[Rfam]
RNA sequence: AAUUUAAGUAGAGGUCGCAUUGUUUAUCAGUAUUCCUAUGGAUGCCGCGGCAGGCAGUUGAAGCAGGGAAGAAAGGAAACGAUGCCGAAGUAAAAUGUCGGCCGCAGAUGUUUUGCUGGGCGUAAAGUCAAUAGCUUUGCGACUGUCAUCAGCAGAUGGAGAGCUACGUACAGA
Numbered sequence: 001a002a003u004u005u006a007a008g009u010a011g012a013g014g015u016c017g018c019a020u021u022g023u024u025u026a027u028c029a030g031u032a033u034u035c036c037u038a039u040g041g042a043u044g045c046c047g048c049g050g051c052a053g054g055c056a057g058u059u060g061a062a063g064c065a066g067g068g069a070a071g072a073a074a075g076g077a078a079a080c081g082a083u084g085c086c087g088a089a090g091u092a093a094a095a096u097g098u099c100g101g102c103c104g105c106a107g108a109u110g111u112u113u114u115g116c117u118g119g120g121c122g123u124a125a126a127g128u129c130a131a132u133a134g135c136u137u138u139g140c141g142a143c144u145g146u147c148a149u150c151a152g153c154a155g156a157u158g159g160a161g162a163g164c165u166a167c168g169u170a171c172a173g174a
Base pairs, nucleotide, nucleotide: 006169008167009166010165011164017085018084019083020082021081022080023079024078025077033070034069035067036066037065039063089117090116091115092114093113094112095111096110097109098108099107118144119143121141122140123139124138125137126136127135128134146159147158148157149156150155
This 174-nucleotide sequence from Eubacterium sp. CAG:86 belongs to the Rfam family "Lysine riboswitch aptamer".
The organism belongs to Eubacterium, within Bacteria.
From the family's description: Riboswitches are metabolite binding domains within certain messenger RNAs that serve as precision sensors for their corresponding targets.